[Rfam]
RNA sequence: UCCCAGUGAUGAGUUGUCACGCUAAUACGGAGCCACCAGGUAGGGCAAUGUGGCCCUGGUUUGGGUGCCAGUGAGUUUAACAAAACUUCUCAAAUGCAGACCUGAGGGAC
Numbered sequence: 001u002c003c004c005a006g007u008g009a010u011g012a013g014u015u016g017u018c019a020c021g022c023u024a025a026u027a028c029g030g031a032g033c034c035a036c037c038a039g040g041u042a043g044g045g046c047a048a049u050g051u052g053g054c055c056c057u058g059g060u061u062u063g064g065g066u067g068c069c070a071g072u073g074a075g076u077u078u079a080a081c082a083a084a085a086c087u088u089c090u091c092a093a094a095u096g097c098a099g100a101c102c103u104g105a106g107g108g109a110c
Stems, first nucleotide, its partner, number of pairs: 001109004041058005
Rfam assigns this 110-nucleotide sequence from Spermophilus dauricus to the family "Small nucleolar RNA U6-53/MBII-28". The match comes from Rfam's covariance-model search (115 bits). On this family, see Huttenhofer et al., EMBO J 2001: "RNomics: an experimental approach that identifies 201 candidates for novel, small, non-messenger RNAs in mouse". It is annotated as a C/D-box small nucleolar RNA.